[Rfam]
RNA sequence: GAGCAAUGACGUUUACUCGCACAAAUUGUGAACGAUUGGGUUGUCACAUACAUCUGAUUUAUAAGAUGAGAUAAUGUGUAUCUGAGCUC
Numbered sequence: 001g002a003g004c005a006a007u008g009a010c011g012u013u014u015a016c017u018c019g020c021a022c023a024a025a026u027u028g029u030g031a032a033c034g035a036u037u038g039g040g041u042u043g044u045c046a047c048a049u050a051c052a053u054c055u056g057a058u059u060u061a062u063a064a065g066a067u068g069a070g071a072u073a074a075u076g077u078g079u080a081u082c083u084g085a086g087c088u089c
Stems, first nucleotide, its partner, number of pairs: 001089004

Overview:
This 89-nucleotide sequence from Solanum commersonii belongs to the Rfam family "small nucleolar RNA snoR114". Lineage of the source: Eukaryota > Spermatophyta > asterids > lamiids > Solanum. The match comes from Rfam's covariance-model search (55 bits). For this family Rfam cites "Mining small RNA sequencing data: a new approach to identify small nucleolar RNAs in Arabidopsis" (Chen and Wu, Nucleic Acids Res, 2009). The base pairs follow the family's consensus structure, which was predicted with RNAalifold.